[Rfam]
RNA sequence: GAGGGAGUACUUAGGUCCCUCAGAAGCGGUGUGUUAAUAGUGAUGCUUUUGGCCAGGCAUGACGGUUAGUGAAUC
Numbered sequence: 001g002a003g004g005g006a007g008u009a010c011u012u013a014g015g016u017c018c019c020u021c022a023g024a025a026g027c028g029g030u031g032u033g034u035u036a037a038u039a040g041u042g043a044u045g046c047u048u049u050u051g052g053c054c055a056g057g058c059a060u061g062a063c064g065g066u067u068a069g070u071g072a073a074u075c
Stems, first nucleotide, its partner, number of pairs: 001021006034069005040063002043060006

L13-Bacteroidia ribosomal protein leader: a 75-nucleotide RNA. A reference for the family is Eckert and Weinberg (2020), "Discovery of 20 novel ribosomal leader candidates in bacteria and archaea", BMC Microbiol. The base pairs follow the family's consensus structure, which is taken from published work. It is one of the family's seed sequences.